[Rfam]
RNA sequence: GGCGUUGUAGCAAAGUGGUUACUGCGAUUGACUAGAAUUGCGCAGCUCAGCUGUGCCUCAAAUCAAUUCCCUUCGGGGGCGUAGGUUCGAAUCCUGCCAACGUCG
Number, nucleotide and partner (000 for none) at each position: 001g104002g103003c102004g101005u100006u099007g098008u000009a000010g025011c024012a023013a000014a000015g000016u000017g000018g000019u000020u000021a000022c000023u012024g011025c010026g000027a067028u066029u065030g064031a063032c000033u000034a000035g000036a000037a000038u000039u000040g000041c000042g000043c000044a000045g000046c000047u000048c000049a000050g000051c000052u000053g000054u000055g000056c000057c000058u000059c000060a000061a000062a000063u031064c030065a029066a028067u027068u000069c000070c000071c000072u000073u000074c000075g000076g000077g000078g000079g000080c000081g097082u096083a095084g094085g093086u000087u000088c000089g000090a000091a000092u000093c085094c084095u083096g082097c081098c007099a006100a005101c004102g003103u002104c001105g000
Source information: A member of the RNA family "tRNA" from Sphaerulina musiva, 105 nucleotides long. Its family is annotated with triplet codon-amino acid adaptor activity in the Gene Ontology. It is annotated as a transfer RNA. The organism belongs to Sphaerulina musiva, within Eukaryota. A search with the family's covariance model found it, with a score of 46 bits.